[Rfam]
RNA: epsC RNA
Organism: Paenibacillus sp. MY03
RNA sequence: AGGUAAUGUCUCCUGAACCUUUAUCACUGGAGGCACUCGACCAUGCUGUGGGAAAUAUGCCUUAGACGUUAAUCGUCGCUGGUGUGGUGUGAGGUGGGGUUAAAUGCCCU
Numbered sequence: 001a002g003g004u005a006a007u008g009u010c011u012c013c014u015g016a017a018c019c020u021u022u023a024u025c026a027c028u029g030g031a032g033g034c035a036c037u038c039g040a041c042c043a044u045g046c047u048g049u050g051g052g053a054a055a056u057a058u059g060c061c062u063u064a065g066a067c068g069u070u071a072a073u074c075g076u077c078g079c080u081g082g083u084g085u086g087g088u089g090u091g092a093g094g095u096g097g098g099g100u101u102a103a104a105u106g107c108c109c110u
Stems, first nucleotide, its partner, number of pairs: 001020004007035007036093004040088008050062003065077004096110005